[Rfam]
RNA sequence: GUGGUGUGAUGCUCGCAUGUAUGGGUAACACACGGGUAUGCAAUUACCCCCACAGAACCCAUGGGAAGGUCUGAGACAAAGGCGUGAAACCCUCGAAAGGGGGGCCCCUGUAACCAUUAGGGGGUGGAGGAAUGGAAACAUGGCCCUUGUGAGGUGCACUUGUGGCACAAGAGGCGCUCCUAUCGCCCCCCCUUGGGGGUGAUGGGUGGGCUGAUGCCAAGCAUCUGCACAUCGGUUGGGAGCCUGUCACUGCCAGCAACUUUGAGUUCAAUGUGCAAGGUGGCAUACUGUGCCAUAACCCAAUUCAGACUACACUCACACCAC
Numbered sequence: 001g002u003g004g005u006g007u008g009a010u011g012c013u014c015g016c017a018u019g020u021a022u023g024g025g026u027a028a029c030a031c032a033c034g035g036g037u038a039u040g041c042a043a044u045u046a047c048c049c050c051c052a053c054a055g056a057a058c059c060c061a062u063g064g065g066a067a068g069g070u071c072u073g074a075g076a077c078a079a080a081g082g083c084g085u086g087a088a089a090c091c092c093u094c095g096a097a098a099g100g101g102g103g104g105c106c107c108c109u110g111u112a113a114c115c116a117u118u119a120g121g122g123g124g125u126g127g128a129g130g131a132a133u134g135g136a137a138a139c140a141u142g143g144c145c146c147u148u149g150u151g152a153g154g155u156g157c158a159c160u161u162g163u164g165g166c167a168c169a170a171g172a173g174g175c176g177c178u179c180c181u182a183u184c185g186c187c188c189c190c191c192c193u194u195g196g197g198g199g200u201g202a203u204g205g206g207u208g209g210g211c212u213g214a215u216g217c218c219a220a221g222c223a224u225c226u227g228c229a230c231a232u233c234g235g236u237u238g239g240g241a242g243c244c245u246g247u248c249a250c251u252g253c254c255a256g257c258a259a260c261u262u263u264g265a266g267u268u269c270a271a272u273g274u275g276c277a278a279g280g281u282g283g284c285a286u287a288c289u290g291u292g293c294c295a296u297a298a299c300c301c302a303a304u305u306c307a308g309a310c311u312a313c314a315c316u317c318a319c320a321c322c323a324c
Base pairs, nucleotide, nucleotide: 001324002323003322004321007318008317009316012279013278015276016275017274018273021062022061023060024059025058034049035048036047037046038045071308072307073306074305075304081254082253083252084251090104091103092102093101094100105123106122107121108120109119110118124250125249126248127247129245130244144235145234280296281295282294283293284292285291
The family of this 324-nucleotide RNA from Patiria miniata is "Nuclear RNase P". The organism belongs to Patiria, within Eukaryota. Pairs were carried over by alignment from the consensus structure, which is taken from published work. By type it is a ribozyme.